[Rfam]
This 67-nucleotide RNA sequence from Amphibalanus amphitrite belongs to the Rfam family "mir-2 microRNA precursor family".

RNA sequence: CUGGUCGUCAAAGUGGUUGUGACUACGUUUUCUAAGCUCGUAUCACAGCCAUGUUUGAUGAGCUGGG
Numbered sequence: 001c002u003g004g005u006c007g008u009c010a011a012a013g014u015g016g017u018u019g020u021g022a023c024u025a026c027g028u029u030u031u032c033u034a035a036g037c038u039c040g041u042a043u044c045a046c047a048g049c050c051a052u053g054u055u056u057g058a059u060g061a062g063c064u065g066g067g
Base pairs, nucleotide, nucleotide: 005061006060007059008058009057010056011055012054014051015050016049017048018047019046020045021044022043024042025041026040
Lineage of the source: Eukaryota > Bilateria > Thoracicalcarea > Balanomorpha > Amphibalanus. Pairs were carried over by alignment from the consensus structure, which was predicted with PFOLD.